[Rfam]
RNA sequence: GGGCUCGCGAGGGUCCGUCUGAAGGAAGCGUGGAACGAACCCACGGGCCGACGUACAGGAAUCGGAUUCGAGGCGCCGCGGACCAGGGCGAGCUGGCACGUGACAGCGAAGCUCUUGCGGUCAAAGGGACGCGGCGUAAAUCCGGCGGUUGUGUGGGGACGGCCAUCUGU
Dot-bracket structure: ((((((....))))))...........(((.(...(...(((((((((((...........((((((.....(((.((((..(..((((..((((........))))...))))............)..)))).)))..))))))))))).))))))....)...).)))
A member of the RNA family "Group II catalytic intron D1-D4-3" from Engelhardtia mirabilis, 170 nucleotides long. The base pairs follow the family's consensus structure. NCBI's taxonomy places the organism under Bacteria, Pseudomonadati, Planctomycetota, Planctomycetia, Engelhardtia. From the family's description: Group II introns are found in rRNA, tRNA and mRNA of organelles in fungi, plants and protists, and also in mRNA in bacteria.